Description: Rfam assigns this 64-nucleotide sequence from Serratia fonticola to the family "Fluoride riboswitch aptamer (crcB RNA motif)". The literature on the family includes a 2012 paper in Nature by Ren et al., "Fluoride ion encapsulation by Mg2+ ions and phosphates in a fluoride riboswitch". Pairs were carried over by alignment from the consensus structure, which is taken from published work.
RNA sequence: CCAACAAACGGAGAUGACAUUCCUCCAUAACCGCCUUUCACAGGCUGAUGAUGUCUACGUAACC
Numbered sequence: 001c002c003a004a005c006a007a008a009c010g011g012a013g014a015u016g017a018c019a020u021u022c023c024u025c026c027a028u029a030a031c032c033g034c035c036u037u038u039c040a041c042a043g044g045c046u047g048a049u050g051a052u053g054u055c056u057a058c059g060u061a062a063c064c
Base pairs, nucleotide, nucleotide: 010026011025012024013023016055017054018053019052020051021050033045034044035043036042